[Rfam]
RNA sequence: CCCAGACCUGUGACGGCCUGUCCAUAAAUCCGCUCUGUGGAGUGGGCGGGCCUGAUGACCCCCUGCG
Numbered sequence: 001c002c003c004a005g006a007c008c009u010g011u012g013a014c015g016g017c018c019u020g021u022c023c024a025u026a027a028a029u030c031c032g033c034u035c036u037g038u039g040g041a042g043u044g045g046g047c048g049g050g051c052c053u054g055a056u057g058a059c060c061c062c063c064u065g066c067g
Base pairs, nucleotide, nucleotide: 001067003065004064005063015052016051017050018049019048020047021046022045023044024043030040031039032038
The record is a 67-nucleotide RNA sequence from Megalops atlanticus, which matches "Selenocysteine insertion sequence 1" in Rfam.
Gene Ontology term of the family: selenocysteine incorporation.
Taxonomically the source falls in Megalops (Eukaryota, Opisthokonta, Eumetazoa, Actinopteri).